[Rfam]
The family of this 97-nucleotide RNA from Nicotiana sylvestris is "MIR6152 microRNA precursor family". The family has 2 seed sequences and 5,807 matches in Rfam 15.1. The base pairs follow the family's consensus structure, which was predicted with RNAalifold.

RNA sequence: AUUAUAUUCAACUGUAUUUGACUGUAUUCACGGCGUGAAAUAGGGGAUUCCACUGUUUUUAAAAUGGAAAGUGAAUCAAUUAACAUAAUAGACUCCU
Numbered sequence: 001a002u003u004a005u006a007u008u009c010a011a012c013u014g015u016a017u018u019u020g021a022c023u024g025u026a027u028u029c030a031c032g033g034c035g036u037g038a039a040a041u042a043g044g045g046g047a048u049u050c051c052a053c054u055g056u057u058u059u060u061a062a063a064a065u066g067g068a069a070a071g072u073g074a075a076u077c078a079a080u081u082a083a084c085a086u087a088a089u090a091g092a093c094u095c096c097u
Stems, first nucleotide, its partner, number of pairs: 004094001009091001011089001013087003017083002020081002023078002026076006034066003037059007